[Rfam]
RNA sequence: AAAAAGUGGAGACAAGAAAACCAUUAAAAAAACAGGGAGUAUUCUGAAAAUCCAAAAGAGUAGGAACAAA
Numbered sequence: 001a002a003a004a005a006g007u008g009g010a011g012a013c014a015a016g017a018a019a020a021c022c023a024u025u026a027a028a029a030a031a032a033c034a035g036g037g038a039g040u041a042u043u044c045u046g047a048a049a050a051u052c053c054a055a056a057a058g059a060g061u062a063g064g065a066a067c068a069a070a
Stems, first nucleotide, its partner, number of pairs: 006024004036053003043064002
Notes:
A member of the RNA family "DUF805 RNA" from Phaeodactylibacter xiamenensis, 70 nucleotides long. Its Rfam clan is "DUF805 clan". The source organism's lineage runs through Bacteria, Pseudomonadati, Saprospiria, Haliscomenobacteraceae and Phaeodactylibacter.